[Rfam]
RNA: Nuclear RNase P
RNA sequence: GCUGGACGGAAGCUUACUGUAGAGGUCACGCGCAGAGUGCCUGUCACUCCACCAAUCACCUCGGGGAAGGUCUGAGACACGAGCCAAUCGCUGCCCUCGCAGGGCAUCACCUGAUCCGGGUGAGCGAGCGCACAGAAACGGGGCUAAUCGCGAGGCAUCAGAGCACGAGAAGCCGCGGAGCGCGAGUCCACGGCGCUCCGCGGCGGAUGCGGCCUCGCGGGCUUGGAAACACUCGCGGCUGGCGGAUGAGUGCGAUGUGUGAGCUGGAGGAAGCAUCCAGAACCCAAUUCAGACUACUCUCCAUCCAGC
Numbered sequence: 001g002c003u004g005g006a007c008g009g010a011a012g013c014u015u016a017c018u019g020u021a022g023a024g025g026u027c028a029c030g031c032g033c034a035g036a037g038u039g040c041c042u043g044u045c046a047c048u049c050c051a052c053c054a055a056u057c058a059c060c061u062c063g064g065g066g067a068a069g070g071u072c073u074g075a076g077a078c079a080c081g082a083g084c085c086a087a088u089c090g091c092u093g094c095c096c097u098c099g100c101a102g103g104g105c106a107u108c109a110c111c112u113g114a115u116c117c118g119g120g121u122g123a124g125c126g127a128g129c130g131c132a133c134a135g136a137a138a139c140g141g142g143g144c145u146a147a148u149c150g151c152g153a154g155g156c157a158u159c160a161g162a163g164c165a166c167g168a169g170a171a172g173c174c175g176c177g178g179a180g181c182g183c184g185a186g187u188c189c190a191c192g193g194c195g196c197u198c199c200g201c202g203g204c205g206g207a208u209g210c211g212g213c214c215u216c217g218c219g220g221g222c223u224u225g226g227a228a229a230c231a232c233u234c235g236c237g238g239c240u241g242g243c244g245g246a247u248g249a250g251u252g253c254g255a256u257g258u259g260u261g262a263g264c265u266g267g268a269g270g271a272a273g274c275a276u277c278c279a280g281a282a283c284c285c286a287a288u289u290c291a292g293a294c295u296a297c298u299c300u301c302c303a304u305c306c307a308g309c
Base pairs, nucleotide, nucleotide: 001309002308003307004306008302009301010300013263014262015261016260017259022062023061024060025059035049036048037047038046039045072292073291074290075289076288082240083239084238085237092106093105094104095103096102107123108122109121110120111119112118124236125235126234127233128232130230143222144221145220264280265279266278267277268276270274